[Rfam]
RNA sequence: AUGGAUCAAUGAUGUUACUAUGAAACUGCGCUAUCUAUCUGAAACAUCUUAAUAGAAUUUGAAGAUAACGGAAUAACAUCGUGAAAUCCAAU
Numbered sequence: 001a002u003g004g005a006u007c008a009a010u011g012a013u014g015u016u017a018c019u020a021u022g023a024a025a026c027u028g029c030g031c032u033a034u035c036u037a038u039c040u041g042a043a044a045c046a047u048c049u050u051a052a053u054a055g056a057a058u059u060u061g062a063a064g065a066u067a068a069c070g071g072a073a074u075a076a077c078a079u080c081g082u083g084a085a086a087u088c089c090a091a092u
Stems, first nucleotide, its partner, number of pairs: 001092002003089004
Overview
A member of the RNA family "Small nucleolar RNA snoR27" from Vitis vinifera, 92 nucleotides long. Clan: snR68 clan. Rfam classes the family as a C/D-box small nucleolar RNA. For this family Rfam cites "Multiple snoRNA gene clusters from Arabidopsis" (Brown et al., RNA, 2001). It is one of the family's seed sequences. Rfam links the family to the GO terms nucleolus and RNA processing. The base pairs follow the family's consensus structure, which was predicted with WAR.